[Rfam]
RNA sequence: CCAUCGAAGAGUUGUAUCAAAGGAAAUUAGAUUACUAUUAUAGUUUUCAAAAUCGGACUCGUAGAACAGGGAA
Numbered sequence: 001c002c003a004u005c006g007a008a009g010a011g012u013u014g015u016a017u018c019a020a021a022g023g024a025a026a027u028u029a030g031a032u033u034a035c036u037a038u039u040a041u042a043g044u045u046u047u048c049a050a051a052a053u054c055g056g057a058c059u060c061g062u063a064g065a066a067c068a069g070g071g072a073a
Stems, first nucleotide, its partner, number of pairs: 001071002004068001009060005023054002030048002035043002
Overview:
This 73-nucleotide RNA sequence from Clostridium perfringens belongs to the Rfam family "RAGATH-18 RNA". Rfam's curators write: Actinobacteria, Firmicutes, Fusobacteria, Thermotogae (1 example). The sequence is in the family's curated seed alignment. Rfam classes the family as a small RNA.